[Rfam]
A member of the RNA family "SAM riboswitch aptamer (S box leader)" from Staphylococcus saprophyticus, 101 nucleotides long. The source organism's lineage runs through Bacteria, Bacilli, Caryophanales, Staphylococcaceae and Staphylococcus saprophyticus.

RNA sequence: AACUUAUCAAGAGAAGUGGAGGGACUGGCCUGUGGAUACUUCGGCAACAUGAUUAUGCGUGUGCCAAUUCCAGUAGCAUCAUUUAUGCUAGAAGAUAAGAA
Numbered sequence: 001a002a003c004u005u006a007u008c009a010a011g012a013g014a015a016g017u018g019g020a021g022g023g024a025c026u027g028g029c030c031u032g033u034g035g036a037u038a039c040u041u042c043g044g045c046a047a048c049a050u051g052a053u054u055a056u057g058c059g060u061g062u063g064c065c066a067a068u069u070c071c072a073g074u075a076g077c078a079u080c081a082u083u084u085a086u087g088c089u090a091g092a093a094g095a096u097a098a099g100a101a
Stems, first nucleotide, its partner, number of pairs: 003099006013042005021031003025073004043065004048061004069093001074090006

Rfam's curators put it in the seed alignment. Its family is annotated with regulation of gene expression in the Gene Ontology.